[Rfam]
RNA sequence: ACGCACAAUGGUAAAAUUAGAUAUAUUUUACCAUAAUUACAUUAAUUUAAUUAUCAAAAAGGAAUUAUGAUAAAUC
Numbered sequence: 001a002c003g004c005a006c007a008a009u010g011g012u013a014a015a016a017u018u019a020g021a022u023a024u025a026u027u028u029u030a031c032c033a034u035a036a037u038u039a040c041a042u043u044a045a046u047u048u049a050a051u052u053a054u055c056a057a058a059a060a061g062g063a064a065u066u067a068u069g070a071u072a073a074a075u076c
Base pairs, nucleotide, nucleotide: 030071032069033068034067035066036065037064